[Rfam]
RNA sequence: GCAGCAGAGGAUGGCAAUAUGGAGGCAUAGCAGGGCACUAAAUUCAACAGCUAUGCCAACAUCUUGCCAUCUUCUAUCCCC
Numbered sequence: 001g002c003a004g005c006a007g008a009g010g011a012u013g014g015c016a017a018u019a020u021g022g023a024g025g026c027a028u029a030g031c032a033g034g035g036c037a038c039u040a041a042a043u044u045c046a047a048c049a050g051c052u053a054u055g056c057c058a059a060c061a062u063c064u065u066g067c068c069a070u071c072u073u074c075u076a077u078c079c080c081c
Stems, first nucleotide, its partner, number of pairs: 006075012019062003024057008

The family of this 81-nucleotide RNA sequence from Megalops atlanticus is "mir-31 microRNA precursor family". On this family, see Ma et al., bioRxiv [Preprint] 2023: "Structure of pre-miR-31 reveals an active role in Dicer processing". It scores 51 bits against the family's covariance model.